A member of the RNA family "Plastid-ccsA-ndhD-2 3UTR RNA" from Passiflora microstipula, 46 nucleotides long. Rfam describes the family as follows. Plastid ccsA-ndhD-2 is a non-coding RNA (ncRNA) recognised in plastids. It was found in the three prime untranslated region (3UTR) of ccsA and ndhD genes, its 3UTR location suggests a role in transcript maturation. Lineage of the source: Eukaryota > Streptophytina > Euphyllophyta > Malpighiales > Passiflora. The literature on the family includes a 2023 paper in Plant Commun by Richter et al., "Retrograde signaling in plants: A critical review focusing on the GUN pathway and beyond".
RNA sequence: GAGAACCCUUUGAAUCAAGUAAUAUAGUGAUUCAAAAGGUUCUCAC
Numbered sequence: 001g002a003g004a005a006c007c008c009u010u011u012g013a014a015u016c017a018a019g020u021a022a023u024a025u026a027g028u029g030a031u032u033c034a035a036a037a038g039g040u041u042c043u044c045a046c
Stems, first nucleotide, its partner, number of pairs: 001044007009036009